[Rfam]
RNA sequence: UUAGAAUAGUUAUACGUACCUCAUAUAAUCUUGGGAAUAUGGCCCAUAAGUUUCUACCCGACUUCCGUAAAAAGUUGGACUAUGAGGGAGAGAGCUAUCUUU
Numbered sequence: 001u002u003a004g005a006a007u008a009g010u011u012a013u014a015c016g017u018a019c020c021u022c023a024u025a026u027a028a029u030c031u032u033g034g035g036a037a038u039a040u041g042g043c044c045c046a047u048a049a050g051u052u053u054c055u056a057c058c059c060g061a062c063u064u065c066c067g068u069a070a071a072a073a074g075u076u077g078g079a080c081u082a083u084g085a086g087g088g089a090g091a092g093a094g095c096u097a098u099c100u101u102u
Base pairs, nucleotide, nucleotide: 019087020086021085022084023083024082025081029049032046033045034044035043058078059077060076061075062074063073064072
This 102-nucleotide RNA sequence from Sutcliffiella cohnii belongs to the Rfam family "Purine riboswitch aptamer". The source organism's lineage runs through Bacteria, Bacilli, Caryophanales, Bacillaceae and Sutcliffiella.